The record is a 93-nucleotide RNA sequence from Tumebacillus algifaecis, which matches "Selenocysteine transfer RNA" in Rfam.
RNA sequence: GGGGGCAGCUGGAGUACUGGUGUUUCCCCUGGUCUUCAAAACCAUGUGCGGCCUACGGUGUAGGCUGGGUGGGUUCGAUUCCCACGUGCUCCC
Numbered sequence: 001g002g003g004g005g006c007a008g009c010u011g012g013a014g015u016a017c018u019g020g021u022g023u024u025u026c027c028c029c030u031g032g033u034c035u036u037c038a039a040a041a042c043c044a045u046g047u048g049c050g051g052c053c054u055a056c057g058g059u060g061u062a063g064g065c066u067g068g069g070u071g072g073g074u075u076c077g078a079u080u081c082c083c084a085c086g087u088g089c090u091c092c093c
Stems, first nucleotide, its partner, number of pairs: 001093007008085001011027003016023002029046001030044004049067005070084004
Notes: The family's consensus secondary structure is taken from published work. The family has 109 seed sequences and 4,211 matches in Rfam 15.1.